[Rfam]
RNA sequence: GAUACCUUUAACGUCAGUCCUGUGAGGCUGGGAAGGUUGCACGGAAUUACAUGACAGCUUACUGCGGUAAGCAUCGAUGUAUGCUUUUUUCUGCACGUCUGCCCUCCAGUCUUCUCUGACUGGAGGGCUUUUUUU
Numbered sequence: 001g002a003u004a005c006c007u008u009u010a011a012c013g014u015c016a017g018u019c020c021u022g023u024g025a026g027g028c029u030g031g032g033a034a035g036g037u038u039g040c041a042c043g044g045a046a047u048u049a050c051a052u053g054a055c056a057g058c059u060u061a062c063u064g065c066g067g068u069a070a071g072c073a074u075c076g077a078u079g080u081a082u083g084c085u086u087u088u089u090u091c092u093g094c095a096c097g098u099c100u101g102c103c104c105u106c107c108a109g110u111c112u113u114c115u116c117u118g119a120c121u122g123g124a125g126g127g128c129u130u131u132u133u134u135u
Base pairs, nucleotide, nucleotide: 004037005036006035007034008033009032014031015030016029017028018027019026050079051078052077057072058071059070060069061068062067101128102127103126104125105124106123107122108121109120110119111118